[Rfam]
RNA sequence: UCAAUAUUACAUACUCCCCUUCAACCAAGACCUAUAGGGAGUCUAAAUUACGUCUUCAUAUCCAGUAGUGAGGGAUUACUGGAAAUAAGUUUCGCA
Dot-bracket structure: .............(((((.(.......[[[[....))))))..........]]]].....(((((((.........))))))).............
Numbered sequence: 001u002c003a004a005u006a007u008u009a010c011a012u013a014c015u016c017c018c019c020u021u022c023a024a025c026c027a028a029g030a031c032c033u034a035u036a037g038g039g040a041g042u043c044u045a046a047a048u049u050a051c052g053u054c055u056u057c058a059u060a061u062c063c064a065g066u067a068g069u070g071a072g073g074g075a076u077u078a079c080u081g082g083a084a085a086u087a088a089g090u091u092u093c094g095c096a
Stems, first nucleotide, its partner, number of pairs: 014041005020036001028055004061083007
The record is a 96-nucleotide RNA sequence, which matches "PhotoRC-II RNA" in Rfam. The family's consensus secondary structure is taken from published work. The sequence is in the family's curated seed alignment. Rfam classes the family as a cis-regulatory element.